Rfam assigns this 154-nucleotide RNA from Ailuropoda melanoleuca to the family "U4 spliceosomal RNA". A search with the family's covariance model found it, with a score of 74 bits. The family's consensus secondary structure is taken from published work. The source organism's lineage runs through Eukaryota, Teleostomi, Sarcopterygii, Tetrapoda and Ailuropoda. The family's RNA type in Rfam is spliceosomal small nuclear RNA.
RNA sequence: AGCUUUGCGCAGUGGCAGUAUCAUAGCCAAUGAAGUUUAUCCGAGGCACAAUCAUUGCUAAUUGAAAACUUUUCCCAACAAAUCACUCAGUUAAUAUAAAUAAAAUAAAGCUAACUUUAUCUUUAUUUAAAAUAUUUAAAAAAUAUUUUUAUAU
Numbered sequence: 001a002g003c004u005u006u007g008c009g010c011a012g013u014g015g016c017a018g019u020a021u022c023a024u025a026g027c028c029a030a031u032g033a034a035g036u037u038u039a040u041c042c043g044a045g046g047c048a049c050a051a052u053c054a055u056u057g058c059u060a061a062u063u064g065a066a067a068a069c070u071u072u073u074c075c076c077a078a079c080a081a082a083u084c085a086c087u088c089a090g091u092u093a094a095u096a097u098a099a100a101u102a103a104a105a106u107a108a109a110g111c112u113a114a115c116u117u118u119a120u121c122u123u124u125a126u127u128u129a130a131a132a133u134a135u136u137u138a139a140a141a142a143a144u145a146u147u148u149u150u151a152u153a154u
Base pairs, nucleotide, nucleotide: 020052021051024048026047027046028045035041087130089128090126091125093123094122096120097119098118099117143154144153145152146151